[Rfam]
RNA sequence: CAGUUGGAUAGAGGUUGCGUAUUUAAUAAGUAAUACCGCAGAUGUGUCAGGCACAGAUGAAGCGGUAUGAAAGGGAAAUACGCCGAAAGGGUUGACUCCCUGAAGGUCAAUUGCUUGGGCAUACGGUUAAGAACCGCAUGACUGUCAUCUAAGGAUGGGGCGCUAUCAACAUU
Number, nucleotide and partner (000 for none) at each position: 001c000002a000003g000004u000005u000006g000007g167008a166009u165010a164011g163012a000013g000014g000015u000016u000017g083018c082019g081020u080021a079022u078023u077024u076025a000026a000027u000028a000029a000030g000031u000032a000033a068034u067035a066036c065037c064038g063039c062040a000041g000042a000043u000044g000045u000046g000047u000048c000049a000050g000051g000052c000053a000054c000055a000056g000057a000058u000059g000060a000061a000062g039063c038064g037065g036066u035067a034068u033069g000070a000071a000072a000073g000074g000075g000076a024077a023078a022079u021080a020081c019082g018083c017084c000085g000086a000087a116088a115089g114090g112091g111092u110093u109094g108095a107096c106097u105098c000099c000100c000101u000102g000103a000104a000105g097106g096107u095108c094109a093110a092111u091112u090113g000114c089115u088116u087117g143118g142119g000120c140121a139122u138123a000124c136125g135126g134127u133128u000129a000130a000131g000132a000133a127134c126135c125136g124137c000138a122139u121140g120141a000142c118143u117144g000145u158146c157147a156148u155149c154150u000151a000152a000153g000154g149155a148156u147157g146158g145159g000160g000161c000162g000163c011164u010165a009166u008167c007168a000169a000170c000171a000172u000173u000
Lysine riboswitch aptamer: a 173-nucleotide sequence from Butyrivibrio sp. M55. Riboswitches are metabolite binding domains within certain messenger RNAs that serve as precision sensors for their corresponding targets.